[Rfam]
RNA: Nuclear RNase P
Organism: Leptidea sinapis
RNA sequence: UCAAUGAUAAUCUCAUACAUGGGGUGCACACACUGAGUACAUAUUAUUCUCUCCACCCCGGGAAGGUCUGAGAAAAGGUCUUUUUGUGGUUCAAAUACAUUCUAGCAGGAUGAUUCCAUUACAUGGAAUGUGGGGAGACCAGAAAUCACAGUAUCAUGUCAAGCUGAUGAGUCCAAGACAUGUUAGUUUUGGAGGAAGCACAGAUAUGAAUGCUGUUGAAAUUUCCCAUGACCUGCUCUUUUAGCCCAAUCUAUGAGAUGAUUAUUUAAUCAUAACUCAAUUCAGACUAAUCUUUCAUUGA
Dot-bracket structure: ((((..(.(..((((((...(((((.........(((((.....))))).....)))))........[[[[[....((((.................(((((.....)))))((((((.....))))))(((((((............(((.............................................................))).......)))))))))))..................))))))((((((....)))))).......]]]]].......).)..))))